This 108-nucleotide RNA sequence belongs to the Rfam family "Small nucleolar RNA Z118/Z121/Z120". A reference for the family is Chen et al. (2003), "The high diversity of snoRNAs in plants: identification and comparative study of 120 snoRNA genes from Oryza sativa", Nucleic Acids Res. Rfam's curators put it in the seed alignment. Rfam 15.1 lists 435 matches to the family in 31 species.

RNA sequence: UGUUUGCUGUGAUGACAUCUACAAGGACGGUAUCUGAGUAAGGUGGCUCUUGAAAGAGUACUCCUUGCGUGAUUACAUCCAAAACUGAUCAGAGAUUCUGAGCAAACA
Numbered sequence: 001u002g003u004u005u006g007c008u009g010u011g012a013u014g015a016c017a018u019c020u021a022c023a024a025g026g027a028c029g030g031u032a033u034c035u036g037a038g039u040a041a042g043g044u045g046g047c048u049c050u051u052g053a054a055a056g057a058g059u060a061c062u063c064c065u066u067g068c069g070u071g072a073u074u075a076c077a078u079c080c081a082a083a084a085c086u087g088a089u090c091a092g093a094g095a096u097u098c099u100g101a102g103c104a105a106a107c108a
Stems, first nucleotide, its partner, number of pairs: 001108007038068006